[Rfam]
RNA sequence: GAUAAGCAUUGAUGAUAAUGACCUUGUGUCAAGACCCUGAAUACUUUGUGACGGUGUCUAAGUCACUACCUCAUCUGAGCUUGUG
Numbered sequence: 001g002a003u004a005a006g007c008a009u010u011g012a013u014g015a016u017a018a019u020g021a022c023c024u025u026g027u028g029u030c031a032a033g034a035c036c037c038u039g040a041a042u043a044c045u046u047u048g049u050g051a052c053g054g055u056g057u058c059u060a061a062g063u064c065a066c067u068a069c070c071u072c073a074u075c076u077g078a079g080c081u082u083g084u085g
Stems, first nucleotide, its partner, number of pairs: 002084006
Rfam assigns this 85-nucleotide RNA sequence from Electrophorus electricus to the family "Small nucleolar RNA SNORD11B".
The base pairs follow the family's consensus structure, which was predicted with WAR.
A reference for the family is Yang et al. (2006), "snoSeeker: an advanced computational package for screening of guide and orphan snoRNA genes in the human genome", Nucleic Acids Res.
The family has 37 seed sequences and 733 matches in Rfam 15.1.
Gene Ontology terms of the family: RNA processing and nucleolus.